The record is a 150-nucleotide RNA from Streptococcus henryi, which matches "Listeria sRNA rli38" in Rfam. Lineage of the source: Bacteria > Bacillota > Bacilli > Streptococcaceae > Streptococcus. By type it is a small RNA. The match comes from Rfam's covariance-model search (55 bits).
[Rfam]
Nucleotides: 150
Stems, first nucleotide, its partner, number of pairs: 011104002049086001052083004057076002060073004090096001113146014
Number, partner (000 for none) and nucleotide at each position: 001000g002000u003000u004000a005000c006000u007000c008000u009000u010000a011104a012103a013000u014000a015000a016000u017000a018000g019000g020000g021000u022000a023000a024000a025000g026000c027000a028000a029000u030000u031000u032000u033000a034000u035000u036000g037000c038000g039000g040000a041000a042000g043000c044000u045000u046000a047000a048000u049086a050000a051000a052083u053082u054081a055080a056000g057076g058075u059000u060073u061072u062071a063070a064000a065000c066000u067000u068000g069000c070063u071062u072061a073060g074000a075058g076057c077000g078000a079000u080055u081054u082053a083052a084000a085000a086049u087000c088000g089000g090096u091000g092000g093000a094000a095000u096090a097000u098000u099000u100000u101000u102000a103012u104011u105000c106000c107000c108000c109000a110000c111000c112000a113146a114145a115144a116143c117142c118141c119140c120139a121138c122137c123136a124135a125134g126133a127000a128000u129000c130000a131000u132000u133126u134125c135124u136123u137122g138121g139120u140119g141118g142117g143116g144115u145114u146113u147000u148000u149000u150000u